[Rfam]
RNA sequence: CGGCGUGGGGGCGACUGGCGCACAACGUGGACAGACCACGGGGAAGCCCCUGAAAGCACACGCCAGCUGACCGCGCGCCUGGGUCAUGCCC
Numbered sequence: 001c002g003g004c005g006u007g008g009g010g011g012c013g014a015c016u017g018g019c020g021c022a023c024a025a026c027g028u029g030g031a032c033a034g035a036c037c038a039c040g041g042g043g044a045a046g047c048c049c050c051u052g053a054a055a056g057c058a059c060a061c062g063c064c065a066g067c068u069g070a071c072c073g074c075g076c077g078c079c080u081g082g083g084u085c086a087u088g089c090c091c
Stems, first nucleotide, its partner, number of pairs: 006052007015043002017079005027039004068086005

Annotation
Shown here is a 91-nucleotide RNA from Deinococcus arboris, a member of the family "ZMP/ZTP riboswitch aptamer (pfl RNA motif)". A search with the family's covariance model found it, with a score of 48 bits. Gene Ontology terms of the family: one-carbon metabolic process and regulation of purine nucleotide biosynthetic process.